[Rfam]
RNA sequence: CAAACGGCUCUUUUCAGAGCCACACCUGUAUCAAAGAGAUGAUCAU
Numbered sequence: 001c002a003a004a005c006g007g008c009u010c011u012u013u014u015c016a017g018a019g020c021c022a023c024a025c026c027u028g029u030a031u032c033a034a035a036g037a038g039a040u041g042a043u044c045a046u
Base pairs, nucleotide, nucleotide: 006021007020008019009018010017011016
Histone 3' UTR stem-loop: a 46-nucleotide sequence from Acanthaster planci. It is annotated as a cis-regulatory element. A reference for the family is Williams and Marzluff (1995), "The sequence of the stem and flanking sequences at the 3' end of histone mRNA are critical determinants for the binding of the stem-loop binding protein", Nucleic Acids Res. The family's consensus secondary structure is taken from published work. A search with the family's covariance model found it, with a score of 36 bits.